[Rfam]
RNA sequence: CCUCGUAUCGGCAAUGGAUUCUGCCGAGGCCAGAAAAGGCUGAACCGCUUCCCCGACGAAGCCGAUGACUCCUACUUCAUU
Numbered sequence: 001c002c003u004c005g006u007a008u009c010g011g012c013a014a015u016g017g018a019u020u021c022u023g024c025c026g027a028g029g030c031c032a033g034a035a036a037a038g039g040c041u042g043a044a045c046c047g048c049u050u051c052c053c054c055g056a057c058g059a060a061g062c063c064g065a066u067g068a069c070u071c072c073u074a075c076u077u078c079a080u081u
Stems, first nucleotide, its partner, number of pairs: 010025004016072003020068002047062004

Fluoride riboswitch aptamer (crcB RNA motif): an 81-nucleotide RNA sequence from Rhizobium metallidurans. It scores 41 bits against the family's covariance model. The base pairs follow the family's consensus structure, which is taken from published work.